The family of this 83-nucleotide RNA from Helianthus annuus is "Small nucleolar RNA R38". The family's RNA type in Rfam is C/D-box small nucleolar RNA. The organism belongs to Helianthus, within Eukaryota.
RNA sequence: GGUUGUGUAUGAUGAGAUCUUAUGUCUAAAACAGUUAUCCCUGUCUGAUAAAUCUUGAUGUUUGCAUUUGUUCUGACUCAGAC
Numbered sequence: 001g002g003u004u005g006u007g008u009a010u011g012a013u014g015a016g017a018u019c020u021u022a023u024g025u026c027u028a029a030a031a032c033a034g035u036u037a038u039c040c041c042u043g044u045c046u047g048a049u050a051a052a053u054c055u056u057g058a059u060g061u062u063u064g065c066a067u068u069u070g071u072u073c074u075g076a077c078u079c080a081g082a083c
Stems, first nucleotide, its partner, number of pairs: 001083001003081003007077001